[Rfam]
RNA sequence: UUUGGAAAGUGAUGAUUGUUUCAUCUCAGAUGUCCUUUAUGGAUUAUUCAGAAUGAUGAGAAAUUGCACGUCAGUCUGAUUCCAAA
Numbered sequence: 001u002u003u004g005g006a007a008a009g010u011g012a013u014g015a016u017u018g019u020u021u022c023a024u025c026u027c028a029g030a031u032g033u034c035c036u037u038u039a040u041g042g043a044u045u046a047u048u049c050a051g052a053a054u055g056a057u058g059a060g061a062a063a064u065u066g067c068a069c070g071u072c073a074g075u076c077u078g079a080u081u082c083c084a085a086a
Base pairs, nucleotide, nucleotide: 001086002085003084004083005082006081007080

Small nucleolar RNA Z122: an 86-nucleotide RNA from Hordeum vulgare.
Rfam classes the family as a C/D-box small nucleolar RNA.
Gene Ontology terms of the family: nucleolus and RNA processing.
The base pairs follow the family's consensus structure, which was predicted with PFOLD.
NCBI's taxonomy places the organism under Eukaryota, Tracheophyta, Petrosaviidae, Poales, Hordeum vulgare.
A search with the family's covariance model found it, with a score of 71 bits.